[Rfam]
RNA: mir-315 microRNA precursor family
Organism: Drosophila virilis
RNA sequence: CGCCUAUAUCAUUUUGAUUGUUGCUCAGAAAGCCCUGCAUUCAAUACUUGGCUUUCGAGUAAUAAUCGAAACCAAAUAAGCG
Numbered sequence: 001c002g003c004c005u006a007u008a009u010c011a012u013u014u015u016g017a018u019u020g021u022u023g024c025u026c027a028g029a030a031a032g033c034c035c036u037g038c039a040u041u042c043a044a045u046a047c048u049u050g051g052c053u054u055u056c057g058a059g060u061a062a063u064a065a066u067c068g069a070a071a072c073c074a075a076a077u078a079a080g081c082g
Stems, first nucleotide, its partner, number of pairs: 001082003005078003012071007020063007028056007